[Rfam]
RNA sequence: AUAAAAAAAGCUCUUUUUCAAAAAUGAAAAAGAGCAAAAGGUCUCUUUGCAUAACAAAGAGUACAAAAAGGGAGAGGAGAAACCGGAAGAAGUACUUAUGGGGAAUGAUAAGACUUCUCCGUAU
Numbered sequence: 001a002u003a004a005a006a007a008a009a010g011c012u013c014u015u016u017u018u019c020a021a022a023a024a025u026g027a028a029a030a031a032g033a034g035c036a037a038a039a040g041g042u043c044u045c046u047u048u049g050c051a052u053a054a055c056a057a058a059g060a061g062u063a064c065a066a067a068a069a070g071g072g073a074g075a076g077g078a079g080a081a082a083c084c085g086g087a088a089g090a091a092g093u094a095c096u097u098a099u100g101g102g103g104a105a106u107g108a109u110a111a112g113a114c115u116u117c118u119c120c121g122u123a124u
Stems, first nucleotide, its partner, number of pairs: 011034009043072005084121004089117004095112004

A member of the RNA family "ylbH leader" from Allobacillus sp. SKP2-8, 124 nucleotides long. The organism belongs to Allobacillus, within Bacteria. Rfam links the family to the GO term regulation of gene expression. A reference for the family is Barrick et al. (2004), "New RNA motifs suggest an expanded scope for riboswitches in bacterial genetic control", Proc Natl Acad Sci U S A. Rfam's curators write: This family is a putative regulatory RNA structure that is found upstream of the ylbH gene in B. subtilis and related low GC Gram-positive bacteria.